[Rfam]
Record summary:
The record is a 94-nucleotide RNA sequence from Dissulfurirhabdus thermomarina, which matches "Selenocysteine transfer RNA" in Rfam. The base pairs follow the family's consensus structure, which is taken from published work. The organism belongs to Dissulfurirhabdus, within Bacteria.
RNA sequence: GGAAGCGGAAAGGGCGCUGGUGGCCCUCCCGGACUUCAAAUCCGGUGCACGGGGUGAGGAGCCCCGUGGGUGGGUUCGAUUCCCAUGCGCUUCC
Number, nucleotide and partner (000 for none) at each position: 001g094002g093003a092004a091005g090006c089007g088008g000009a086010a000011a027012g026013g025014g024015c023016g000017c022018u000019g000020g000021u000022g017023g015024c014025c013026c012027u011028c000029c045030c044031g043032g042033a041034c000035u000036u000037c000038a000039a000040a000041u033042c032043c031044g030045g029046u000047g000048c068049a067050c066051g065052g064053g000054g000055u000056g000057a000058g000059g000060a000061g000062c000063c000064c052065c051066g050067u049068g048069g000070g000071u085072g084073g083074g082075u000076u000077c000078g000079a000080u000081u000082c074083c073084c072085a071086u009087g000088c007089g006090c005091u004092u003093c002094c001
Rfam 15.1 lists 4,211 matches to the family in 3,344 species.